RNA sequence: CAAUGCAAUAGAGGUUGCGACAAUUACGAAAAUCAGCCUAGUACGCGAAUAUGAUUAAGCUGAUUGUAAGAAUUGUUGCCGAAAUCGAAUUGACUUUCGCGGGUUAGUUCGGUUGGGCUACAGGAGCAGAUCCUGUAGACUGUCCUGAGAAUAUCAGGGAGCGCUAUACGAUUU
Number, nucleotide and partner (000 for none) at each position: 001c000002a000003a000004u000005g000006c000007a000008a167009u166010a165011g164012a000013g000014g000015u000016u000017g079018c078019g077020a076021c075022a074023a073024u072025u071026a000027c000028g000029a000030a000031a065032a064033u063034c062035a061036g060037c059038c000039u000040a000041g000042u000043a000044c000045g000046c000047g000048a000049a000050u000051a000052u000053g000054a000055u000056u000057a000058a000059g037060c036061u035062g034063a033064u032065u031066g000067u000068a000069a000070g000071a025072a024073u023074u022075g021076u020077u019078g018079c017080c000081g000082a000083a114084a113085u112086c111087g110088a109089a108090u107091u106092g105093a104094c103095u000096u000097u000098c000099g000100c000101g000102g000103g094104u093105u092106a091107g090108u089109u088110c087111g086112g085113u084114u083115g141116g140117g000118c138119u137120a136121c135122a134123g133124g132125a131126g000127c000128a000129g000130a000131u125132c124133c123134u122135g121136u120137a119138g118139a000140c116141u115142g000143u159144c158145c157146u156147g155148a154149g000150a000151a000152u000153a000154u148155c147156a146157g145158g144159g143160a000161g000162c000163g000164c011165u010166a009167u008168a000169c000170g000171a000172u000173u000174u000
Lysine riboswitch aptamer: a 174-nucleotide RNA sequence from Lactobacillus pasteurii. The base pairs follow the family's consensus structure, which is taken from published work.